[Rfam]
RNA sequence: UGAUAACAUCAGGAGAGAUUUCUAAGUAGAAAUCCACCAACCGAGCUAAAAGCUACGGUGGUUAGUUCCAUUAAACGGAGGAUGUGCCUUGAAAAAGGAAAAAGUGGAACCGCCUG
Numbered sequence: 001u002g003a004u005a006a007c008a009u010c011a012g013g014a015g016a017g018a019u020u021u022c023u024a025a026g027u028a029g030a031a032a033u034c035c036a037c038c039a040a041c042c043g044a045g046c047u048a049a050a051a052g053c054u055a056c057g058g059u060g061g062u063u064a065g066u067u068c069c070a071u072u073a074a075a076c077g078g079a080g081g082a083u084g085u086g087c088c089u090u091g092a093a094a095a096a097g098g099a100a101a102a103a104g105u106g107g108a109a110c111c112g113c114c115u116g
Stems, first nucleotide, its partner, number of pairs: 006085005015035001017034007036062003041058003044054003087098004
Dot-bracket structure: .....(((((....(.(((((((....))))))))(((..((((((.....))).))).)))..................))))).((((....))))..................